[Rfam]
Bacillaceae-1 RNA: a 63-nucleotide RNA sequence from Ureibacillus manganicus.
RNA sequence: CGCAACUUAUCGCCGAAAACGCCACGUCCUGUGGCAUCGUCGAUAUGACCAACGUCGUGUUGG
Numbered sequence: 001c002g003c004a005a006c007u008u009a010u011c012g013c014c015g016a017a018a019a020c021g022c023c024a025c026g027u028c029c030u031g032u033g034g035c036a037u038c039g040u041c042g043a044u045a046u047g048a049c050c051a052a053c054g055u056c057g058u059g060u061u062g063g
Stems, first nucleotide, its partner, number of pairs: 008045005014039001021035005049063005

Rfam 15.1 lists 5,721 matches to the family in 247 species. The organism belongs to Ureibacillus manganicus, within Bacteria.